[Rfam]
RNA sequence: CAAGAUCCUUGGCAAAACCGGCGUGAGCCGGCGACGCAAAGCUUCCGGUCUCCUGGCUGAUGAACACGUUACGUUCGUCGCUGUUGGAGAUAGCGGGGCUGCCAGG
Number, nucleotide and partner (000 for none) at each position: 001c000002a000003a000004g000005a000006u000007c000008c000009u000010u000011g000012g037013c036014a000015a000016a000017a000018c031019c030020g029021g028022c027023g000024u000025g000026a000027g022028c021029c020030g019031g018032c000033g000034a000035c000036g013037c012038a000039a000040a100041g099042c098043u097044u000045c096046c095047g094048g091049u090050c089051u088052c087053c086054u000055g000056g000057c000058u000059g000060a000061u000062g000063a000064a000065c000066a000067c000068g000069u000070u000071a000072c000073g000074u000075u000076c000077g000078u000079c000080g000081c000082u000083g000084u000085u000086g053087g052088a051089g050090a049091u048092a000093g000094c047095g046096g045097g043098g042099c041100u040101g000102c000103c000104a000105g000106g000
RNA: c-di-GMP-I riboswitch aptamer